RNA sequence: GGCGCCCCCACUGGAGAGAGGUCGCUGCCCAGCACAGGCAGGCAGCGAUCCACCGAAGGAGCAACCCUGCAUCGCCAGGCGAAUCUCUCAGGUAAAGCGGACAGCGGGGCAGCU
Numbered sequence: 001g002g003c004g005c006c007c008c009c010a011c012u013g014g015a016g017a018g019a020g021g022u023c024g025c026u027g028c029c030c031a032g033c034a035c036a037g038g039c040a041g042g043c044a045g046c047g048a049u050c051c052a053c054c055g056a057a058g059g060a061g062c063a064a065c066c067c068u069g070c071a072u073c074g075c076c077a078g079g080c081g082a083a084u085c086u087c088u089c090a091g092g093u094a095a096a097g098c099g100g101a102c103a104g105c106g107g108g109g110c111a112g113c114u
Stems, first nucleotide, its partner, number of pairs: 006109004011104003020050010052093003055089002059087003066079004
RNA: Glycine riboswitch aptamer
Organism: Rhodoferax sediminis